This 76-nucleotide sequence from Ameiurus melas belongs to the Rfam family "mir-7563 microRNA precursor family". Taxonomically the source falls in Ameiurus (Eukaryota, Ostariophysi, Otophysi, Siluroidei). Pairs were carried over by alignment from the consensus structure, which was predicted with RNAalifold.

RNA sequence: ACCGCAUACUUACCUUCUAUACAGUAGGAGAAAUACAUGUAUCUCGUCUACUAUAUAGCAGGUAAGUACGCGGUUU
Numbered sequence: 001a002c003c004g005c006a007u008a009c010u011u012a013c014c015u016u017c018u019a020u021a022c023a024g025u026a027g028g029a030g031a032a033a034u035a036c037a038u039g040u041a042u043c044u045c046g047u048c049u050a051c052u053a054u055a056u057a058g059c060a061g062g063u064a065a066g067u068a069c070g071c072g073g074u075u076u
Stems, first nucleotide, its partner, number of pairs: 001074005007068009017058005023052005030045002033042003
Its family is annotated with miRNA-mediated post-transcriptional gene silencing and RISC complex in the Gene Ontology.